[Rfam]
RNA sequence: GGAGUGUUAUCGUAAUAGUAAUUGAACUUAGUACGAGAGGAACCGUUCAUUCAGAUAUUUGGUAUUUGCGCCUGUCCGAUCGGGCAAUGGCGCGAAGCUAUCAUCUGCUGGAUUAUGGCUGAACGCCUCUAAGCCAGAAUCCGUGCUAGAAACGAUGAUGUUGGUCCCGCACAUAUUAGCUGUGUUAAAAUAGAGCUCUGCUCGUGAACCAAAUCAGACAGACGUGGGUAUUGCAGUGGAAAUCUGUGGUAUCUAGUUUGUGAAUUGUAAUUACCAUAUGGGCGGGGGUGAAUCCUUUGCAGACGACUUGAAUGGGAACGGGGUACUGUAAGCAGUAGAGUAGCCUUGUUGCUACGAUCUGCUGAGGUUAAGCCCUUGUUCUAAAGAUUUGU
Numbered sequence: 001g002g003a004g005u006g007u008u009a010u011c012g013u014a015a016u017a018g019u020a021a022u023u024g025a026a027c028u029u030a031g032u033a034c035g036a037g038a039g040g041a042a043c044c045g046u047u048c049a050u051u052c053a054g055a056u057a058u059u060u061g062g063u064a065u066u067u068g069c070g071c072c073u074g075u076c077c078g079a080u081c082g083g084g085c086a087a088u089g090g091c092g093c094g095a096a097g098c099u100a101u102c103a104u105c106u107g108c109u110g111g112a113u114u115a116u117g118g119c120u121g122a123a124c125g126c127c128u129c130u131a132a133g134c135c136a137g138a139a140u141c142c143g144u145g146c147u148a149g150a151a152a153c154g155a156u157g158a159u160g161u162u163g164g165u166c167c168c169g170c171a172c173a174u175a176u177u178a179g180c181u182g183u184g185u186u187a188a189a190a191u192a193g194a195g196c197u198c199u200g201c202u203c204g205u206g207a208a209c210c211a212a213a214u215c216a217g218a219c220a221g222a223c224g225u226g227g228g229u230a231u232u233g234c235a236g237u238g239g240a241a242a243u244c245u246g247u248g249g250u251a252u253c254u255a256g257u258u259u260g261u262g263a264a265u266u267g268u269a270a271u272u273a274c275c276a277u278a279u280g281g282g283c284g285g286g287g288g289u290g291a292a293u294c295c296u297u298u299g300c301a302g303a304c305g306a307c308u309u310g311a312a313u314g315g316g317a318a319c320g321g322g323g324u325a326c327u328g329u330a331a332g333c334a335g336u337a338g339a340g341u342a343g344c345c346u347u348g349u350u351g352c353u354a355c356g357a358u359c360u361g362c363u364g365a366g367g368u369u370a371a372g373c374c375c376u377u378g379u380u381c382u383a384a385a386g387a388u389u390u391g392u
Stems, first nucleotide, its partner, number of pairs: 006159008016148004021051001023049005052107005060100003067094005073086005109143003116136005166286005172280001290390005296310001299307001315382006321375003325368002332362004337358001340355005
The family of this 392-nucleotide part of an RNA from Rhizoctonia solani is "Eukaryotic large subunit ribosomal RNA". Its Rfam clan is "LSU clan". The match comes from Rfam's covariance-model search (3148 bits). NCBI's taxonomy places the organism under Eukaryota, Opisthokonta, Fungi, Dikarya, Rhizoctonia. Pairs were carried over by alignment from the consensus structure, which is taken from published work.